Shown here is a 62-nucleotide RNA from Pimelobacter simplex, a member of the family "Actino-pnp RNA".
Rfam classes the family as a cis-regulatory element.
Lineage of the source: Bacteria > Bacillati > Actinomycetes > Propionibacteriales > Pimelobacter.
The base pairs follow the family's consensus structure, which is taken from published work.
[Rfam]
RNA sequence: AUCGAUCCUCGGUAGUGGCACUCAGGGCCGUCGCGUCCUGCAUGCCUCGAUCGAAGAUCGAU
Numbered sequence: 001a002u003c004g005a006u007c008c009u010c011g012g013u014a015g016u017g018g019c020a021c022u023c024a025g026g027g028c029c030g031u032c033g034c035g036u037c038c039u040g041c042a043u044g045c046c047u048c049g050a051u052c053g054a055a056g057a058u059c060g061a062u
Stems, first nucleotide, its partner, number of pairs: 001062007009054005017046004023040006